[Rfam]
RNA sequence: GGGGAUAACUCUUAGAACCCCGGAACGGAGUGUUAAUAGUCGUACUUUUGGCCGAGUGCGACGGUUAGUGAAUC
Numbered sequence: 001g002g003g004g005a006u007a008a009c010u011c012u013u014a015g016a017a018c019c020c021c022g023g024a025a026c027g028g029a030g031u032g033u034u035a036a037u038a039g040u041c042g043u044a045c046u047u048u049u050g051g052c053c054g055a056g057u058g059c060g061a062c063g064g065u066u067a068g069u070g071a072a073u074c
Base pairs, nucleotide, nucleotide: 001021002020003019004018033068034067035066036065037064039062040061041060042059043058044057045056046055047054
RNA: L13-Bacteroidia ribosomal protein leader